Overview
The record is an 82-nucleotide sequence from Silurus meridionalis, which matches "let-7 microRNA precursor family" in Rfam. About the family: This family represents the microRNAs (miRNA) let-7 and mir-98. let-7 was identified from a study of developmental timing in C. elegans, and was later shown to be part of a much larger class of non-coding RNAs termed miRNAs. Rfam links the family to the GO terms RISC complex and miRNA-mediated post-transcriptional gene silencing. The match comes from Rfam's covariance-model search (70 bits). A reference for the family is Rougvie (2001), "Control of developmental timing in animals", Nat Rev Genet.
RNA sequence: UAAGGCUGAGGUAGUAGAUUGAAUAGUUGUGGGGUAUUAAUCCUCUCUCUGAGAUAACUAUACAAUCUACUGUCUUUCCUAA
Numbered sequence: 001u002a003a004g005g006c007u008g009a010g011g012u013a014g015u016a017g018a019u020u021g022a023a024u025a026g027u028u029g030u031g032g033g034g035u036a037u038u039a040a041u042c043c044u045c046u047c048u049c050u051g052a053g054a055u056a057a058c059u060a061u062a063c064a065a066u067c068u069a070c071u072g073u074c075u076u077u078c079c080u081a082a
Stems, first nucleotide, its partner, number of pairs: 001082001003080003008076014023061005032045003047053002